RNA sequence: UUAACCAAACUGGGGGCCAUAGAAGGAGCGUUCACGUCGCGGUCCCUGUCAGAUAUCUGUUUACCUGCGAAUCCUUCU
Dot-bracket structure: ............[[[[[[..((((((((((.......)))]]]]]]...(((.((......)).)))....)))))))
RNA: Mammalian CPEB3 ribozyme